The family of this 139-nucleotide sequence from Nematostella vectensis is "U4 spliceosomal RNA". The family's consensus secondary structure is taken from published work. The family has 177 seed sequences and 32,178 matches in Rfam 15.1. The family is grouped with related families in Rfam's "U4 clan". The family's RNA type in Rfam is spliceosomal small nuclear RNA. U4 small nuclear RNA (U4 snRNA) is a component of the major U2-dependent spliceosome.
[Rfam]
RNA sequence: AGCUUUGCGCAGUGGCAUUACCGUAGCUGAUGAGGUUCAUCCGAGGCGCGGUUAUUGCUGAUUGAAAACUUUUCCCAAUACCCCGCGAGACGACUUGAAACAUAGUCGGCUUUGCAAUUUUUGAAGGUCUUCAAGAAGG
Numbered sequence: 001a002g003c004u005u006u007g008c009g010c011a012g013u014g015g016c017a018u019u020a021c022c023g024u025a026g027c028u029g030a031u032g033a034g035g036u037u038c039a040u041c042c043g044a045g046g047c048g049c050g051g052u053u054a055u056u057g058c059u060g061a062u063u064g065a066a067a068a069c070u071u072u073u074c075c076c077a078a079u080a081c082c083c084c085g086c087g088a089g090a091c092g093a094c095u096u097g098a099a100a101c102a103u104a105g106u107c108g109g110c111u112u113u114g115c116a117a118u119u120u121u122u123g124a125a126g127g128u129c130u131u132c133a134a135g136a137a138g139g
Stems, first nucleotide, its partner, number of pairs: 020052005026047003034042002085115003088111002091108005096102002128139004